A member of the RNA family "Glycine riboswitch aptamer" from Caloramator fervidus, 98 nucleotides long. NCBI's taxonomy places the organism under Bacteria, Bacillota, Clostridia, Clostridiaceae, Caloramator. A search with the family's covariance model found it, with a score of 67 bits.

RNA sequence: AUGAAGCAAAUAGGAGAGACCCGUAAAGGGCGCCGAAGGGGUAAGUUAGGUGAGCCGGACCUAAUGAUACUCUCAGGCAAAAGAACUAUUUGCGGACA
Numbered sequence: 001a002u003g004a005a006g007c008a009a010a011u012a013g014g015a016g017a018g019a020c021c022c023g024u025a026a027a028g029g030g031c032g033c034c035g036a037a038g039g040g041g042u043a044a045g046u047u048a049g050g051u052g053a054g055c056c057g058g059a060c061c062u063a064a065u066g067a068u069a070c071u072c073u074c075a076g077g078c079a080a081a082a083g084a085a086c087u088a089u090u091u092g093c094g095g096a097c098a
Base pairs, nucleotide, nucleotide: 006093007092008091009090010089011088012087013086020030021029022028032078033077034076035074036073039072040071041070045065046064047063048062049061050060051059